RNA sequence: UAAUCCUUUAAAUCUGUCCCGUGAGGCAGACAAGGAGUCAAAGUAUAAGAUGGUGUCGCACAGUGAGGCUGUUGGUAGUUUCUCUGUGCUUGCCUAGAUUUUCUGAAGUCUCCUUGUGAAGGAGACUUUUUCUAUU
Numbered sequence: 001u002a003a004u005c006c007u008u009u010a011a012a013u014c015u016g017u018c019c020c021g022u023g024a025g026g027c028a029g030a031c032a033a034g035g036a037g038u039c040a041a042a043g044u045a046u047a048a049g050a051u052g053g054u055g056u057c058g059c060a061c062a063g064u065g066a067g068g069c070u071g072u073u074g075g076u077a078g079u080u081u082c083u084c085u086g087u088g089c090u091u092g093c094c095u096a097g098a099u100u101u102u103c104u105g106a107a108g109u110c111u112c113c114u115u116g117u118g119a120a121g122g123a124g125a126c127u128u129u130u131u132c133u134a135u136u
Stems, first nucleotide, its partner, number of pairs: 004036005013030006058089006065082007105129011

The family of this 136-nucleotide sequence from Streptococcus intermedius is "PyrR binding site". Pairs were carried over by alignment from the consensus structure, which is taken from published work. Rfam 15.1 lists 1,498 matches to the family in 930 species. The match comes from Rfam's covariance-model search (58 bits).